[Rfam]
Notes: This 271-nucleotide RNA from Paenibacillus sp. N3.4 belongs to the Rfam family "T-box leader". The family has 48 seed sequences and 19,395 matches in Rfam 15.1.
RNA sequence: CAGUAAGCGAUGAUAGGAACAAGUAUGUUUGUGUCCCGUUUCUCAGAGAGCCGGUGGUUGGUGCGAACCGGUGAAACGAGCAAGCCGAAUGGAUCCUUGAGCUUGAGGCUGAACGCAGAUAGAGGUUGCCGGGACCUAGGCCGGACUAACAUCCUCAUUUGUCCAAGUAUGCCAAACGGUAGCUCCCCGUUAUCAGAGCCUGAAGGUCUUACAGCAUGUUUCAUUUGCUGACAGACAAAUUAGGGUGGUACCACGAUCUCUCGUCCCUUGC
Numbered sequence: 001c002a003g004u005a006a007g008c009g010a011u012g013a014u015a016g017g018a019a020c021a022a023g024u025a026u027g028u029u030u031g032u033g034u035c036c037c038g039u040u041u042c043u044c045a046g047a048g049a050g051c052c053g054g055u056g057g058u059u060g061g062u063g064c065g066a067a068c069c070g071g072u073g074a075a076a077c078g079a080g081c082a083a084g085c086c087g088a089a090u091g092g093a094u095c096c097u098u099g100a101g102c103u104u105g106a107g108g109c110u111g112a113a114c115g116c117a118g119a120u121a122g123a124g125g126u127u128g129c130c131g132g133g134a135c136c137u138a139g140g141c142c143g144g145a146c147u148a149a150c151a152u153c154c155u156c157a158u159u160u161g162u163c164c165a166a167g168u169a170u171g172c173c174a175a176a177c178g179g180u181a182g183c184u185c186c187c188c189g190u191u192a193u194c195a196g197a198g199c200c201u202g203a204a205g206g207u208c209u210u211a212c213a214g215c216a217u218g219u220u221u222c223a224u225u226u227g228c229u230g231a232c233a234g235a236c237a238a239a240u241u242a243g244g245g246u247g248g249u250a251c252c253a254c255g256a257u258c259u260c261u262c263g264u265c266c267c268u269u270g271c
Stems, first nucleotide, its partner, number of pairs: 007102002015097004027085005039075003050072006104175001107173003177189003206236004212230005242268004253264004